[Rfam]
This 92-nucleotide RNA sequence from Novilysobacter defluvii belongs to the Rfam family "Glycine riboswitch aptamer".
RNA sequence: CACUCUGGAGAGACCGGUUCACUCCGGCGCCGAAGGGGCAUGAAGCGCAUCCCUCCCCCGCGCUUUGAACUCUCAGGCAAAAGGACAGAGGG
Numbered sequence: 001c002a003c004u005c006u007g008g009a010g011a012g013a014c015c016g017g018u019u020c021a022c023u024c025c026g027g028c029g030c031c032g033a034a035g036g037g038g039c040a041u042g043a044a045g046c047g048c049a050u051c052c053c054u055c056c057c058c059c060g061c062g063c064u065u066u067g068a069a070c071u072c073u074c075a076g077g078c079a080a081a082a083g084g085a086c087a088g089a090g091g092g
Base pairs, nucleotide, nucleotide: 001092003090004089005088006087007086014027015026016025017024029078030077031076032074033073036072037071038070042065043064